[Rfam]
RNA sequence: UGCAGGCGCACUCUGAGUCACAUUGAAUUAUCUCAUGUGAUGACUAUUUGUUAACCUUGCUAUAGAAAAUGAGAGCUGCGAUUUAUCCAUGUGAUCCUGUACUUUGAAUGGAUUGCAUUGAAAACGCGGCUUACACUCG
Numbered sequence: 001u002g003c004a005g006g007c008g009c010a011c012u013c014u015g016a017g018u019c020a021c022a023u024u025g026a027a028u029u030a031u032c033u034c035a036u037g038u039g040a041u042g043a044c045u046a047u048u049u050g051u052u053a054a055c056c057u058u059g060c061u062a063u064a065g066a067a068a069a070u071g072a073g074a075g076c077u078g079c080g081a082u083u084u085a086u087c088c089a090u091g092u093g094a095u096c097c098u099g100u101a102c103u104u105u106g107a108a109u110g111g112a113u114u115g116c117a118u119u120g121a122a123a124a125c126g127c128g129g130c131u132u133a134c135a136c137u138c139g
Stems, first nucleotide, its partner, number of pairs: 002060002004057003010051002015044001017041007025034002067137001071132003076128001079126002086121002089118008
RNA: Small nucleolar RNA psi18S-841/snoR66
Organism: Drosophila navojoa